Streptococcus sRNA SpR14: a 76-nucleotide sequence from Streptococcus pseudopneumoniae. Lineage of the source: Bacteria > Bacillati > Bacillota > Streptococcus > Streptococcus pseudopneumoniae. For this family Rfam cites "Control of virulence by small RNAs in Streptococcus pneumoniae" (Mann et al., PLoS Pathog, 2012). Rfam's curators put it in the seed alignment.
RNA sequence: UUUCUAAUGAAAAAAUUCUCUUUUCAUACUCAUUUAAAAUCAAAAAGGGAAUUUAUCGUUUUACGGACAUGUAUAU
Numbered sequence: 001u002u003u004c005u006a007a008u009g010a011a012a013a014a015a016u017u018c019u020c021u022u023u024u025c026a027u028a029c030u031c032a033u034u035u036a037a038a039a040u041c042a043a044a045a046a047g048g049g050a051a052u053u054u055a056u057c058g059u060u061u062u063a064c065g066g067a068c069a070u071g072u073a074u075a076u
Stems, first nucleotide, its partner, number of pairs: 006060003013054012